Shown here is a 161-nucleotide RNA from Vibrio rumoiensis, a member of the family "Molybdenum/Tungsten riboswitch aptamer (Moco RNA motif)".

RNA sequence: GCAACGUCAUAACUCCGAGCCUUAAGUGCUAAGUUCAACAUUGAUACAGCAAAAGCGUAUUAAUGAGAAUAGGUAGCUAAGGCCGUGACAUACUGUCACCAGGGUUGGCUUAGAAAUGAGUUAACCUCCCGCAUUUGGAAAGGUGUUUCAUGACCUCAAUA
Numbered sequence: 001g002c003a004a005c006g007u008c009a010u011a012a013c014u015c016c017g018a019g020c021c022u023u024a025a026g027u028g029c030u031a032a033g034u035u036c037a038a039c040a041u042u043g044a045u046a047c048a049g050c051a052a053a054a055g056c057g058u059a060u061u062a063a064u065g066a067g068a069a070u071a072g073g074u075a076g077c078u079a080a081g082g083c084c085g086u087g088a089c090a091u092a093c094u095g096u097c098a099c100c101a102g103g104g105u106u107g108g109c110u111u112a113g114a115a116a117u118g119a120g121u122u123a124a125c126c127u128c129c130c131g132c133a134u135u136u137g138g139a140a141a142g143g144u145g146u147u148u149c150a151u152g153a154c155c156u157c158a159a160u161a
Base pairs, nucleotide, nucleotide: 011147012146013145015143016142019083020082021081022080023079024078027075028074029073033070034069035068036067085099086098087097088096089095102127103126104125105124106123107122108121109120110119111118112117128138129137

A reference for the family is Regulski et al. (2008), "in molybdenum cofactor and tungsten cofactor metabolism", Mol Microbiol. Rfam links the family to the GO terms regulation of gene expression, tungstate binding and molybdenum ion binding. Pairs were carried over by alignment from the consensus structure, which is taken from published work.